[Rfam]
RNA sequence: ACGACCUUACUUGAACAGGAUCUGUUCUAUAGGCUCGUACCACUGUAUCCUUAGAACACCAGAAACCAAGUCUGGUGGAUGAACCGUGGCUAUGAGACUAGAGUGUGAUUAACAGCCUCCAUGGCCUUUGGGUCAUGGUUCCAUAGAUUAUUGUUCUCUGCCUGGUCCACUGGGCUUGAGAUGGUCUCGUGGCUAUCUGACAGACU
Numbered sequence: 001a002c003g004a005c006c007u008u009a010c011u012u013g014a015a016c017a018g019g020a021u022c023u024g025u026u027c028u029a030u031a032g033g034c035u036c037g038u039a040c041c042a043c044u045g046u047a048u049c050c051u052u053a054g055a056a057c058a059c060c061a062g063a064a065a066c067c068a069a070g071u072c073u074g075g076u077g078g079a080u081g082a083a084c085c086g087u088g089g090c091u092a093u094g095a096g097a098c099u100a101g102a103g104u105g106u107g108a109u110u111a112a113c114a115g116c117c118u119c120c121a122u123g124g125c126c127u128u129u130g131g132g133u134c135a136u137g138g139u140u141c142c143a144u145a146g147a148u149u150a151u152u153g154u155u156c157u158c159u160g161c162c163u164g165g166u167c168c169a170c171u172g173g174g175c176u177u178g179a180g181a182u183g184g185u186c187u188c189g190u191g192g193c194u195a196u197c198u199g200a201c202a203g204a205c206u
Stems, first nucleotide, its partner, number of pairs: 001038002003035001005033003013027006045059002048056001050054001070205005089193012102155004112144001115141001119138008157179002160175006

This 206-nucleotide RNA from Capsicum baccatum belongs to the Rfam family "Plant small nucleolar RNA U3".
A reference for the family is Speckmann et al. (1999), "Nuclear retention elements of U3 small nucleolar RNA", Mol Cell Biol.
Lineage of the source: Eukaryota > Euphyllophyta > Gunneridae > Solanaceae > Capsicum.
Rfam's curators write: Small nucleolar RNAs (snoRNAs) are involved in the processing and modification of rRNA in the nucleolus.
The family is grouped with related families in Rfam's "U3 clan".
Rfam links the family to the GO terms nucleolus and RNA processing.
The match comes from Rfam's covariance-model search (137 bits).